Rfam assigns this 66-nucleotide RNA sequence from Burkholderia ubonensis to the family "DUF3800-VIII RNA". About the family: Bacteroidetes, Cyanobacteria, Firmicutes, Planctomycetes (1 example), Proteobacteria, Tenericutes (1 example). Pairs were carried over by alignment from the consensus structure, which is taken from published work. Taxonomically the source falls in Burkholderia ubonensis (Bacteria, Betaproteobacteria, Burkholderiales, Burkholderia).
[Rfam]
RNA sequence: UUGGCCCUGCGCCUUGCGAACGCCCAAGUUCCACUUGGGACCCUUAUGUAGCAAGCGCGGGGCCGU
Numbered sequence: 001u002u003g004g005c006c007c008u009g010c011g012c013c014u015u016g017c018g019a020a021c022g023c024c025c026a027a028g029u030u031c032c033a034c035u036u037g038g039g040a041c042c043c044u045u046a047u048g049u050a051g052c053a054a055g056c057g058c059g060g061g062g063c064c065g066u
Stems, first nucleotide, its partner, number of pairs: 002065011014054004023039007